A member of the RNA family "U5 spliceosomal RNA" from Papio anubis, 117 nucleotides long. The family's RNA type in Rfam is spliceosomal small nuclear RNA. Pairs were carried over by alignment from the consensus structure, which is taken from published work. Rfam 15.1 lists 28,527 matches to the family in 2,489 species. The source organism's lineage runs through Eukaryota, Bilateria, Sarcopterygii, Primates and Papio. The match comes from Rfam's covariance-model search (80 bits).

[Rfam]
RNA sequence: AUGCUCUGGUUUCUCUUCAGAACAAAUAAAUCUUUGGCCUUUUACUAAAGAUUUCCAUGGAGAGGAACAAUUCUUAAUUAAUAACCAAAUUUUUGAUGUCCUGCUUAGGCAAGGCCA
Numbered sequence: 001a002u003g004c005u006c007u008g009g010u011u012u013c014u015c016u017u018c019a020g021a022a023c024a025a026a027u028a029a030a031u032c033u034u035u036g037g038c039c040u041u042u043u044a045c046u047a048a049a050g051a052u053u054u055c056c057a058u059g060g061a062g063a064g065g066a067a068c069a070a071u072u073c074u075u076a077a078u079u080a081a082u083a084a085c086c087a088a089a090u091u092u093u094u095g096a097u098g099u100c101c102u103g104c105u106u107a108g109g110c111a112a113g114g115c116c117a
Stems, first nucleotide, its partner, number of pairs: 003079001005077001009068011028054008097117002100114003